[Rfam]
RNA sequence: GAGAAUGUUUUCUAGGGUUCCGCAAUACAAAUUGGUCUGGUCCGAGAGAAAACUCACAGCCUGAGCUGUGCCACGGAAGGAUAAAAGCCUGGGAGAG
Numbered sequence: 001g002a003g004a005a006u007g008u009u010u011u012c013u014a015g016g017g018u019u020c021c022g023c024a025a026u027a028c029a030a031a032u033u034g035g036u037c038u039g040g041u042c043c044g045a046g047a048g049a050a051a052a053c054u055c056a057c058a059g060c061c062u063g064a065g066c067u068g069u070g071c072c073a074c075g076g077a078a079g080g081a082u083a084a085a086a087g088c089c090u091g092g093g094a095g096a097g
Stems, first nucleotide, its partner, number of pairs: 007053006015043002020040002022037001023034004055070006072092001074095001078090003
Shown here is a 97-nucleotide sequence from Oceanobacillus oncorhynchi, a member of the family "Guanidine-I riboswitch aptamer".